This 102-nucleotide sequence from Mesobacillus boroniphilus belongs to the Rfam family "Purine riboswitch aptamer". The family's consensus secondary structure is taken from published work. From the family's description: Riboswitches are metabolite binding domains within certain messenger RNAs that serve as precision sensors for their corresponding targets. Allosteric rearrangement of mRNA structure is mediated by ligand binding, and this results in modulation of gene expression. A class of riboswitches that selectively recognises guanine and becomes saturated at concentrations as low as 5 nM. In Bacillus subtilis, this mRNA motif is located on at least five separate transcriptional units that together encode 17 genes that are mostly involved in purine transport and purine nucleotide biosynthesis.
[Rfam]
RNA sequence: CAACUAUAUAGAAUAACCCUUCAUAUAUCCUCGAUAAUAUGGUUCGAAAGUAUCUACCAAAUCACCGGAAAUGAUUUGACUAUGAAGGCAGUUUUCUUUUUU
Numbered sequence: 001c002a003a004c005u006a007u008a009u010a011g012a013a014u015a016a017c018c019c020u021u022c023a024u025a026u027a028u029c030c031u032c033g034a035u036a037a038u039a040u041g042g043u044u045c046g047a048a049a050g051u052a053u054c055u056a057c058c059a060a061a062u063c064a065c066c067g068g069a070a071a072u073g074a075u076u077u078g079a080c081u082a083u084g085a086a087g088g089c090a091g092u093u094u095u096c097u098u099u100u101u102u
Base pairs, nucleotide, nucleotide: 018088019087020086021085022084023083024082025081031047032046033045034044058078059077060076061075062074063073064072